A member of the RNA family "Pyrrolysine insertion sequence mttB", 100 nucleotides long. The family's consensus secondary structure was predicted with CMfinder. For this family Rfam cites "Effects of using coding potential, sequence conservation and mRNA structure conservation for predicting pyrroly-sine containing genes" (Theil Have et al., BMC Bioinformatics, 2013). Rfam links the family to the GO term pyrrolysine incorporation. A search with the family's covariance model found it, with a score of 88 bits. By type it is a cis-regulatory element.
RNA sequence: UAGACCGACGCCAAGGUGCCCGAUGGACAGGCUGGUCACGAGAAGACCAUCACCUCCCUCCUCGCAGCACUCGCUGGCGUCAACAUGAUCUACGGAUCCG
Numbered sequence: 001u002a003g004a005c006c007g008a009c010g011c012c013a014a015g016g017u018g019c020c021c022g023a024u025g026g027a028c029a030g031g032c033u034g035g036u037c038a039c040g041a042g043a044a045g046a047c048c049a050u051c052a053c054c055u056c057c058c059u060c061c062u063c064g065c066a067g068c069a070c071u072c073g074c075u076g077g078c079g080u081c082a083a084c085a086u087g088a089u090c091u092a093c094g095g096a097u098c099c100g
Stems, first nucleotide, its partner, number of pairs: 003012001025032001034061002077098001080095001